[Rfam]
RNA sequence: CCUGUCGCUAAAGCACUGUAGGUGUGGCUGCUGUGUCAUGUGUGCCAGUAGGCGGCAGAGAGGAGGGAGGUUACAUCUGUGCUCAGGGUUUUGACCUGUGAAUGUCUGAGUAGUCUAACGUU
Dot-bracket structure: .(((((.(((..(....(((..((((((......))))))..))))..)))..)))))......(..(((((((....(((.(((.(((....)))..))).)))....)))))))..)...
Numbered sequence: 001c002c003u004g005u006c007g008c009u010a011a012a013g014c015a016c017u018g019u020a021g022g023u024g025u026g027g028c029u030g031c032u033g034u035g036u037c038a039u040g041u042g043u044g045c046c047a048g049u050a051g052g053c054g055g056c057a058g059a060g061a062g063g064a065g066g067g068a069g070g071u072u073a074c075a076u077c078u079g080u081g082c083u084c085a086g087g088g089u090u091u092u093g094a095c096c097u098g099u100g101a102a103u104g105u106c107u108g109a110g111u112a113g114u115c116u117a118a119c120g121u122u
Stems, first nucleotide, its partner, number of pairs: 002058005008051003013046001018045003023040006065119001068116007079105003083101003087096003
The family of this 122-nucleotide RNA from Mus spicilegus is "Small nucleolar RNA SNORA17". A reference for the family is Ofengand and Bakin (1997), "Mapping to nucleotide resolution of pseudouridine residues in large subunit ribosomal RNAs from representative eukaryotes, prokaryotes, archaebacteria, mitochondria and chloroplasts", J Mol Biol. Its family is annotated with nucleolus and RNA processing in the Gene Ontology. By type it is an H/ACA-box small nucleolar RNA. Its Rfam clan is "SNORA17 clan". From the family's description: snoRNA ACA 17 belongs to the H/ACA family of snoRNAs and is predicted to guide pseudouridylation of the 28S rRNA at positions U4659 and U4598. It shares the same host gene together with ACA43. NB This family has a high threshold value to exclude a large number of closely related sequences that do not appear to have conserved H and ACA boxes, and may be pseudogenes. NCBI's taxonomy places the organism under Eukaryota, Vertebrata, Dipnotetrapodomorpha, Boreoeutheria, Mus.